Background: This 47-nucleotide RNA sequence from Melanocharis versteri belongs to the Rfam family "Histone 3' UTR stem-loop". Rfam links the family to the GO term mRNA 3'-end processing by stem-loop binding and cleavage.

RNA sequence: CCAAAGGCUCUUCUAAGAGCCACCCACUUUUUCCUUUAAAGAGCUGU
Numbered sequence: 001c002c003a004a005a006g007g008c009u010c011u012u013c014u015a016a017g018a019g020c021c022a023c024c025c026a027c028u029u030u031u032u033c034c035u036u037u038a039a040a041g042a043g044c045u046g047u
Base pairs, nucleotide, nucleotide: 006021007020008019009018010017011016